[Rfam]
Overview
Small nucleolar RNA psi18S-1377: a 143-nucleotide sequence from Drosophila grimshawi. From the family's description: psi18S-1377 is a member of the H/ACA class of snoRNA. This family is responsible for guiding the modification of uridines 1377 and 1279 to pseudouridine in Drosophila 18S rRNA. It is annotated as an H/ACA-box small nucleolar RNA. NCBI's taxonomy places the organism under Eukaryota, Bilateria, Protostomia, Brachycera, Hawaiian Drosophila. The family has 15 seed sequences and 113 matches in Rfam 15.1. Rfam links the family to the GO terms RNA processing and nucleolus.
RNA sequence: CCGUUCUUGUGUUAUUUGCUGAACUUAGUUUAUCAUUCAGUGAUUGUCAAACAGAACGCACAGCAAAUUCCAAGCCAGUUAACUCCACGUUGUUGAACCUAUCAAUACCAAGGUGUCUACAUAACUAUCCUCUGGCUACAUUC
Number, nucleotide and partner (000 for none) at each position: 001c000002c058003g057004u056005u055006c054007u053008u000009g000010u049011g048012u000013u000014a000015u000016u043017u042018g041019c040020u039021g038022a037023a000024c000025u000026u000027a000028g000029u000030u000031u000032a000033u000034c000035a000036u000037u022038c021039a020040g019041u018042g017043a016044u000045u000046g000047u000048c011049a010050a000051a000052c000053a007054g006055a005056a004057c003058g002059c000060a000061c000062a000063g000064c000065a000066a000067a000068u000069u000070c000071c000072a000073a000074g000075c000076c000077a000078g000079u000080u000081a000082a000083c000084u000085c000086c000087a000088c000089g000090u000091u121092g120093u119094u000095g000096a000097a114098c113099c112100u000101a000102u000103c000104a000105a000106u000107a000108c000109c000110a000111a000112g099113g098114u097115g000116u000117c000118u000119a093120c092121a091122u000123a000124a000125c000126u000127a000128u000129c000130c000131u000132c000133u000134g000135g000136c000137u000138a000139c000140a000141u000142u000143c000